[Rfam]
This 82-nucleotide RNA sequence from Papilio xuthus belongs to the Rfam family "mir-2767 microRNA precursor family". The family's consensus secondary structure was predicted with RNAalifold.
RNA sequence: UUCCAAUGUCGUUCUAAGUAAAUCUCGUGCGGCUUAUUUUGUUUAUUUAAGUCGCACGAGAUUUAUUUCGAUUGAUGUUGGA
Numbered sequence: 001u002u003c004c005a006a007u008g009u010c011g012u013u014c015u016a017a018g019u020a021a022a023u024c025u026c027g028u029g030c031g032g033c034u035u036a037u038u039u040u041g042u043u044u045a046u047u048u049a050a051g052u053c054g055c056a057c058g059a060g061a062u063u064u065a066u067u068u069c070g071a072u073u074g075a076u077g078u079u080g081g082a
Base pairs, nucleotide, nucleotide: 006078007077008076009075010074011073013071014070016068017067018066019065020064021063022062023061024060025059026058027057028056029055030054031053032052033051034050035049036048